Shown here is a 73-nucleotide RNA sequence from Rubidibacter lacunae, a member of the family "Cyano-1 RNA". It is annotated as a small RNA. A search with the family's covariance model found it, with a score of 44 bits. Lineage of the source: Bacteria > Oscillatoriophycideae > Chroococcales > Rubidibacter > Rubidibacter lacunae. The base pairs follow the family's consensus structure, which is taken from published work.
[Rfam]
RNA sequence: GUGAGUGUGAGGAGCGAUCGAACGAAAGUCUCUAGGGUCGAAACACGGCAAGACGCCUUGAGGCUUUUCUUCG
Numbered sequence: 001g002u003g004a005g006u007g008u009g010a011g012g013a014g015c016g017a018u019c020g021a022a023c024g025a026a027a028g029u030c031u032c033u034a035g036g037g038u039c040g041a042a043a044c045a046c047g048g049c050a051a052g053a054c055g056c057c058u059u060g061a062g063g064c065u066u067u068u069c070u071u072c073g
Base pairs, nucleotide, nucleotide: 024068025067026066027065028064029063030062034058035057036056037054038053039052